[Rfam]
RNA sequence: GGAGCAGCAACGAUGUUACGCAGCAGGGCAGUCGCCCUAAAACAAAGUUAGGCCGCAUGGACACAACGCAGG
Numbered sequence: 001g002g003a004g005c006a007g008c009a010a011c012g013a014u015g016u017u018a019c020g021c022a023g024c025a026g027g028g029c030a031g032u033c034g035c036c037c038u039a040a041a042a043c044a045a046a047g048u049u050a051g052g053c054c055g056c057a058u059g060g061a062c063a064c065a066a067c068g069c070a071g072g
Stems, first nucleotide, its partner, number of pairs: 004069001006017001008015002020056002023053002026037004038050003060064001

Record summary
This 72-nucleotide sequence from Kluyvera intermedia belongs to the Rfam family "putative aminoglycoside riboswitch / attI site". Rfam's curators write: Conserved RNA structure found upstream of the bacterial aminoglycosides antibiotic-resistant genes: aminoglycoside acetyl transferase (AAC) and aminoglycoside adenyl transferase (AAD). It has putative short open reading frame (ORF) that encode leader peptide upstream of the resistance gene. 75 nucleotide long sequence from the first ribosome binding site (SD1) up to the coding sequence was shown to have the regulatory role, and it was considered the minima functional RNA. Aminoglycosides bind to specific regions of AAC/AAD 5' leader and induce change in the RNA structure. NCBI's taxonomy places the organism under Bacteria, Pseudomonadati, Pseudomonadota, Enterobacteriaceae, Kluyvera. The sequence is in the family's curated seed alignment.